This 148-nucleotide RNA from Pseudomonas fluorescens belongs to the Rfam family "Group II catalytic intron D1-D4-7". Lineage of the source: Bacteria > Pseudomonadota > Pseudomonadales > Pseudomonas > Pseudomonas fluorescens. From the family's description: Group II introns are found in rRNA, tRNA and mRNA of organelles in fungi, plants and protists, and also in mRNA in bacteria. The base pairs follow the family's consensus structure.
RNA sequence: CUCGUUGUGCGACCAACGAUAGCCUAGGCAGACAUGCGUCACUGGUAACGGUGAGGUGUGAAGCUCUUCUCACAAUGUAGUCCCCGUCUGGGUGUGCUUUUGCCGCGAGGUAAAGCAUAGAUACUCGGAGCAGUACCGGGUUGAGACG
Numbered sequence: 001c002u003c004g005u006u007g008u009g010c011g012a013c014c015a016a017c018g019a020u021a022g023c024c025u026a027g028g029c030a031g032a033c034a035u036g037c038g039u040c041a042c043u044g045g046u047a048a049c050g051g052u053g054a055g056g057u058g059u060g061a062a063g064c065u066c067u068u069c070u071c072a073c074a075a076u077g078u079a080g081u082c083c084c085c086g087u088c089u090g091g092g093u094g095u096g097c098u099u100u101u102g103c104c105g106c107g108a109g110g111u112a113a114a115g116c117a118u119a120g121a122u123a124c125u126c127g128g129a130g131c132a133g134u135a136c137c138g139g140g141u142u143g144a145g146a147c148g
Stems, first nucleotide, its partner, number of pairs: 002019006028069001030067003033060005039054006083092003093119004103110002123141006